[Rfam]
RNA sequence: UGAAACCUUCAGGGCAGGGUGCGAUUCCCUACCGGCGGUAACGUUUAUAACGAAGCCCGCGAGCCUUUUGGCAGAUCUGGUGUAAUUCCAGAGCCGACAGUUAUAGUCUGGAUGAGAGAAGGAGUAA
Numbered sequence: 001u002g003a004a005a006c007c008u009u010c011a012g013g014g015c016a017g018g019g020u021g022c023g024a025u026u027c028c029c030u031a032c033c034g035g036c037g038g039u040a041a042c043g044u045u046u047a048u049a050a051c052g053a054a055g056c057c058c059g060c061g062a063g064c065c066u067u068u069u070g071g072c073a074g075a076u077c078u079g080g081u082g083u084a085a086u087u088c089c090a091g092a093g094c095c096g097a098c099a100g101u102u103a104u105a106g107u108c109u110g111g112a113u114g115a116g117a118g119a120a121g122g123a124g125u126a127a
Stems, first nucleotide, its partner, number of pairs: 003125001006122005017029003031107002033096002035060004055094002063072003076092005098110003
FMN riboswitch aptamer (RFN element): a 127-nucleotide RNA sequence from Alkaliphilus serpentinus. The organism belongs to Alkaliphilus, within Bacteria. The match comes from Rfam's covariance-model search (124 bits).